[Rfam]
RNA: MISL RNA
RNA sequence: GGAUAAUCCCGGGUGACCGGGGAAAGGUCGCUCCCGGCUGGUGGGGGCGGCCCCUCUUGCGCGGUGCAGAAAACCUGCACGGGCGGGGAGGCAGGAUUCACCAGCUCCUCUGGCACGGUCGCACGUGCCGGUACUGCGAACAAGGAGCCUGGCGGUUAGGAGCGUCCCAGAAGCCGCUCCGAGCCGAGUCAAGUAGUCCGGGUGGGCUUCGGCCCCGGACGAAUCGCAGUUACCCUGAGGGUUCACGGUUGCUACUGCGUACCAGCACGGUGCGAGUGGACCUGGCGGCUGCGGUGACGUAAAGCCGCCCAAACAAACCCCCCGGAAGGGGGACAAAAAGGGCGCUCGUACCGGGGAGGACACGGGACCGGGCAAUUCCCGUGAAAACCUUCCGGAGAGGUGGCGAUGCCGAAAAGGGCACCGCUGCCUUGCGAGGGAAAGGCAACCUGAGAGGUAAGAGGCGAGACCCGUGGCACCGGGUCAACGCACCACCACAAGUGGUGGCUGCCCCGGCGCUAAGUGGUCAAGACGCGAUGCCUCGCAAGCGUGUCUUGGCCUGGUUCGCAGGCUGGUGGCGCAACCACCCGCCGAAGCGAGCUGAAAAGCCUCACUCAACAAUCCCGGCGCCGCAAGGCCCGGGACGGCCCUGCUACGAGGCCGAUAACUCCGCCUUGCCGCGGGGAAUAGCGUCGGGAAGCCGGCAGCCCUCAGUGGCGCCUAAUGCCGGCACGGGAAAGAGAGCGUGGCGCACUCC
Numbered sequence: 001g002g003a004u005a006a007u008c009c010c011g012g013g014u015g016a017c018c019g020g021g022g023a024a025a026g027g028u029c030g031c032u033c034c035c036g037g038c039u040g041g042u043g044g045g046g047g048c049g050g051c052c053c054c055u056c057u058u059g060c061g062c063g064g065u066g067c068a069g070a071a072a073a074c075c076u077g078c079a080c081g082g083g084c085g086g087g088g089a090g091g092c093a094g095g096a097u098u099c100a101c102c103a104g105c106u107c108c109u110c111u112g113g114c115a116c117g118g119u120c121g122c123a124c125g126u127g128c129c130g131g132u133a134c135u136g137c138g139a140a141c142a143a144g145g146a147g148c149c150u151g152g153c154g155g156u157u158a159g160g161a162g163c164g165u166c167c168c169a170g171a172a173g174c175c176g177c178u179c180c181g182a183g184c185c186g187a188g189u190c191a192a193g194u195a196g197u198c199c200g201g202g203u204g205g206g207c208u209u210c211g212g213c214c215c216c217g218g219a220c221g222a223a224u225c226g227c228a229g230u231u232a233c234c235c236u237g238a239g240g241g242u243u244c245a246c247g248g249u250u251g252c253u254a255c256u257g258c259g260u261a262c263c264a265g266c267a268c269g270g271u272g273c274g275a276g277u278g279g280a281c282c283u284g285g286c287g288g289c290u291g292c293g294g295u296g297a298c299g300u301a302a303a304g305c306c307g308c309c310c311a312a313a314c315a316a317a318c319c320c321c322c323c324g325g326a327a328g329g330g331g332g333a334c335a336a337a338a339a340g341g342g343c344g345c346u347c348g349u350a351c352c353g354g355g356g357a358g359g360a361c362a363c364g365g366g367a368c369c370g371g372g373c374a375a376u377u378c379c380c381g382u383g384a385a386a387a388c389c390u391u392c393c394g395g396a397g398a399g400g401u402g403g404c405g406a407u408g409c410c411g412a413a414a415a416g417g418g419c420a421c422c423g424c425u426g427c428c429u430u431g432c433g434a435g436g437g438a439a440a441g442g443c444a445a446c447c448u449g450a451g452a453g454g455u456a457a458g459a460g461g462c463g464a465g466a467c468c469c470g471u472g473g474c475a476c477c478g479g480g481u482c483a484a485c486g487c488a489c490c491a492c493c494a495c496a497a498g499u500g501g502u503g504g505c506u507g508c509c510c511c512g513g514c515g516c517u518a519a520g521u522g523g524u525c526a527a528g529a530c531g532c533g534a535u536g537c538c539u540c541g542c543a544a545g546c547g548u549g550u551c552u553u554g555g556c557c558u559g560g561u562u563c564g565c566a567g568g569c570u571g572g573u574g575g576c577g578c579a580a581c582c583a584c585c586c587g588c589c590g591a592a593g594c595g596a597g598c599u600g601a602a603a604a605g606c607c608u609c610a611c612u613c614a615a616c617a618a619u620c621c622c623g624g625c626g627c628c629g630c631a632a633g634g635c636c637c638g639g640g641a642c643g644g645c646c647c648u649g650c651u652a653c654g655a656g657g658c659c660g661a662u663a664a665c666u667c668c669g670c671c672u673u674g675c676c677g678c679g680g681g682g683a684a685u686a687g688c689g690u691c692g693g694g695a696a697g698c699c700g701g702c703a704g705c706c707c708u709c710a711g712u713g714g715c716g717c718c719u720a721a722u723g724c725c726g727g728c729a730c731g732g733g734a735a736a737g738a739g740a741g742c743g744u745g746g747c748g749c750a751c752u753c754c
Stems, first nucleotide, its partner, number of pairs: 008021005026052011060085003064080005104148006113128005119139005153186004159180005170210005194222001196220007225259005232242003247447006284309007319332005354393005362382006407420004451613003458609004474515001476513005487503006524555010560598006567589003571585005619641006626635003642660005649688004665682006697728007704715002707711001739753003